Overview:
Small nucleolar RNA SNORA11: a 134-nucleotide RNA from Equus caballus. Rfam links the family to the GO terms RNA processing and nucleolus. Rfam 15.1 lists 2,014 matches to the family in 202 species. Rfam describes the family as follows. U107 (SNORA11) is a member of the H/ACA class of snoRNAs that guide the sites of modification of uridines to pseudouridines. This snoRNA was identified by RT-PCR from blood cells and its expression confirmed by Northern blot analysis. There is no predicted target for this guide snRNA. The family's RNA type in Rfam is H/ACA-box small nucleolar RNA.

RNA sequence: GCGGUGUGCUCAGAGCAGAGUGCCUGAAGACUGGCUCCUAUGUUUAAAACACACCCAACAGAAACUUGGGUUUACUCCUCACGGGUGGCAGGAUACUUUGGCCUUCCUGUGACAUGACAUCAUGACCUAUACUU
Numbered sequence: 001g002c003g004g005u006g007u008g009c010u011c012a013g014a015g016c017a018g019a020g021u022g023c024c025u026g027a028a029g030a031c032u033g034g035c036u037c038c039u040a041u042g043u044u045u046a047a048a049a050c051a052c053a054c055c056c057a058a059c060a061g062a063a064a065c066u067u068g069g070g071u072u073u074a075c076u077c078c079u080c081a082c083g084g085g086u087g088g089c090a091g092g093a094u095a096c097u098u099u100g101g102c103c104u105u106c107c108u109g110u111g112a113c114a115u116g117a118c119a120u121c122a123u124g125a126c127c128u129a130u131a132c133u134u
Base pairs, nucleotide, nucleotide: 003055004054005053006052007051008050013045014044015043016042017041019039020038022035023034024033069127070126071125072124076117077116082111083110085104087102089100090099091098092097